U7 small nuclear RNA: a 61-nucleotide RNA sequence from Nomascus leucogenys.

RNA sequence: CAGUGUUACAGCUUUUUUACAAUUUACCUAGCAGGUUUUCCAGUUUUUAUCAGAAACCUCC
Numbered sequence: 001c002a003g004u005g006u007u008a009c010a011g012c013u014u015u016u017u018u019a020c021a022a023u024u025u026a027c028c029u030a031g032c033a034g035g036u037u038u039u040c041c042a043g044u045u046u047u048u049a050u051c052a053g054a055a056a057c058c059u060c061c
Stems, first nucleotide, its partner, number of pairs: 034059002037056004043050002
Taxonomically the source falls in Nomascus (Eukaryota, Opisthokonta, Euarchontoglires, Haplorrhini). Animal histone pre-mRNAs are spliced by a different mechanism than nuclear pre-mRNAs and self-splicing introns. This processing involves the U7 snRNP, which contains only one RNA species: U7. Pairs were carried over by alignment from the consensus structure, which was predicted with PFOLD.